The family of this 293-nucleotide sequence from Marchantia polymorpha is "Plant signal recognition particle RNA". Pairs were carried over by alignment from the consensus structure, which is taken from published work. The match comes from Rfam's covariance-model search (133 bits). Lineage of the source: Eukaryota > Streptophyta > Embryophyta > Marchantia > Marchantia polymorpha. The family's RNA type in Rfam is non-coding RNA gene.

[Rfam]
Nucleotides: 293
Base pairs, nucleotide, nucleotide: 002039003038004023005022006021007020008019009018028037029036030035045293046292047291048290051287052286054283055282056281057279059277060276061275062274064271065270066269067268068267072263073262075257076256077255078254079253080252081251082250086244092242093241094240095239096238097237098236099235100231101230103229104228105227106226107225109222110221111220112219113218114217115216116215117214118161119160120159121158123156127155128154129153130152131151132150133149134148135147138145139144169212170211171210172209173208178205180203181202182201187196188195189194
Number, partner (000 for none) and nucleotide at each position: 001000u002039c003038u004023g005022g006021g007020c008019a009018g010000c011000g012000u013000a014000g015000c016000g017000a018009c019008u020007g021006c022005c023004u024000g025000u026000a027000a028037c029036c030035c031000g032000a033000g034000c035030g036029g037028g038003a039002g040000u041000a042000a043000g044000a045293g046292a047291g048290a049000u050000g051287g052286g053000a054283g055282c056281u057279g058000u059277g060276g061275c062274u063000c064271u065270c066269g067268c068267a069000g070000a071000c072263g073262a074000c075257u076256g077255c078254u079253g080252g081251u082250a083000u084000c085000a086244u087000g088000u089000c090000g091000a092242a093241g094240g095239c096238a097237c098236g099235u100231c101230c102000a103229c104228u105227c106226g107225a108000a109222g110221c111220g112219u113218g114217g115216a116215g117214u118161c119160u120159c121158u122000g123156a124000u125000c126000c127155g128154g129153g130152c131151u132150c133149c134148u135147u136000g137000g138145c139144g140000g141000a142000a143000g144139c145138g146000a147135g148134g149133g150132g151131a152130g153129u154128c155127u156123u157000g158121g159120g160119g161118g162000a163000u164000g165000a166000u167000g168000u169212g170211g171210a172209g173208g174000g175000c176000a177000c178205a179000g180203c181202g182201u183000g184000a185000g186000g187196c188195g189194g190000g191000c192000g193000a194189c195188c196187g197000a198000g199000c200000a201182g202181c203180g204000a205178u206000c207000a208173c209172u210171u211170c212169c213000c214117g215116c216115u217114c218113u219112g220111c221110g222109c223000a224000g225107u226106c227105g228104g229103g230101g231100g232000a233000c234000c235099g236098c237097g238096u239095g240094c241093c242092u243000g244086a245000a246000u247000g248000c249000u250082u251081g252080c253079c254078a255077g256076c257075g258000a259000u260000c261000a262073u263072c264000u265000g266000a267068u268067g269066c270065g271064a272000u273000c274062a275061g276060c277059c278000u279057c280000c281056a282055g283054c284000c285000a286052c287051c288000a289000c290048u291047c292046u293045c